The record is a 166-nucleotide sequence from Sciurus carolinensis, which matches "Small nucleolar RNA SNORA22" in Rfam.
Gene Ontology terms of the family: RNA processing and nucleolus.
RNA sequence: UUGCACAGUGAAUACCCAAGGGUUUUAUUUGCUCCACAUCCUUGUCAGUGUUUUGUUUUAUAGUUUCCUUGGCUUUGACGCUAUGCUAGAACAAUGUCUGUUCUUUUCCUCUGCAUUGCAAGGUAUAUGCUGUUCUUUCAAAUGUAUUCAGAAAGUCAGCAUAGCA
Dot-bracket structure: ..(((.((....((.(((((.(..((((...............................))))..).)))))...))...)).))).((((((.....)))))).....(((((((((.((((..........)))).).))))....))))..............